Proteobacterial sRNA sX11: a 141-nucleotide RNA sequence from Xanthomonas sp. XNM01. A reference for the family is Schmidtke et al. (2011), "Genome-wide transcriptome analysis of the plant pathogen Xanthomonas identifies sRNAs with putative virulence functions", Nucleic Acids Res. The family's consensus secondary structure was predicted with CMfinder.

[Rfam]
RNA sequence: GCGUCGGUCGCAGUGCCUUCCCGGUCCUACUCCCCAAGUGGCCGAUCCCCGGAAGCGCUCAUGCUGCGGGGCCCUGAGCAAGCCCAACCGCCGACACCACGGAAACCCCGGUCCGCGCAACGCGGGCCGGGGUUUCUCUUU
Numbered sequence: 001g002c003g004u005c006g007g008u009c010g011c012a013g014u015g016c017c018u019u020c021c022c023g024g025u026c027c028u029a030c031u032c033c034c035c036a037a038g039u040g041g042c043c044g045a046u047c048c049c050c051g052g053a054a055g056c057g058c059u060c061a062u063g064c065u066g067c068g069g070g071g072c073c074c075u076g077a078g079c080a081a082g083c084c085c086a087a088c089c090g091c092c093g094a095c096a097c098c099a100c101g102g103a104a105a106c107c108c109c110g111g112u113c114c115g116c117g118c119a120a121c122g123c124g125g126g127c128c129g130g131g132g133u134u135u136c137u138c139u140u141u
Stems, first nucleotide, its partner, number of pairs: 001097001003095006010067006022044005027038002048055001069085004105133011